Rfam assigns this 89-nucleotide RNA from Mandrillus leucophaeus to the family "Small nucleolar RNA SNORD113/SNORD114 family". The family has 59 seed sequences and 5,721 matches in Rfam 15.1. By type it is a C/D-box small nucleolar RNA. Pairs were carried over by alignment from the consensus structure, which is taken from published work. Gene Ontology terms of the family: RNA processing and nucleolus. A search with the family's covariance model found it, with a score of 45 bits. A reference for the family is Cavaille et al. (2002), "Identification of tandemly-repeated C/D snoRNA genes at the imprinted human 14q32 domain reminiscent of those at the Prader-Willi/Angelman syndrome region", Hum Mol Genet. The imprinted human domain at 14q32 contains two clusters of tandemly repeated small nucleolar RNAs named 14q(I) and 14q(II) snoRNAs. These two clusters are named SNORD113 and SNORD114 respectively in the HGNC approved gene symbol nomenclature. The snoRNAs found in both clusters are clearly related and are represented here by a single family. These snoRNAs are intron encoded and are processed from the tissue-specific non-coding human MEG8 RNA, which lies downstream of the imprinted genes DLK1 and GTL2. snoRNAs 14q(I) and 14q(II) differ from previously identified C/D box snoRNAs in their expression profiles and lack of complementarity to rRNA and snRNA. Homologues of these snoRNAs are found in the imprinted non-coding mouse transcript Rian, and in the rat non-coding Bsr (brain-specific repetitive) RNA.

[Rfam]
RNA sequence: UGGACCAUUGAUGACAACUGGUGACUUACGUGAUUGUAUAUGCUGGUUGUAUAUGAAGAAUAGUACGUAUCUGAAACUUUGAGGUCCAA
Numbered sequence: 001u002g003g004a005c006c007a008u009u010g011a012u013g014a015c016a017a018c019u020g021g022u023g024a025c026u027u028a029c030g031u032g033a034u035u036g037u038a039u040a041u042g043c044u045g046g047u048u049g050u051a052u053a054u055g056a057a058g059a060a061u062a063g064u065a066c067g068u069a070u071c072u073g074a075a076a077c078u079u080u081g082a083g084g085u086c087c088a089a
Stems, first nucleotide, its partner, number of pairs: 002087005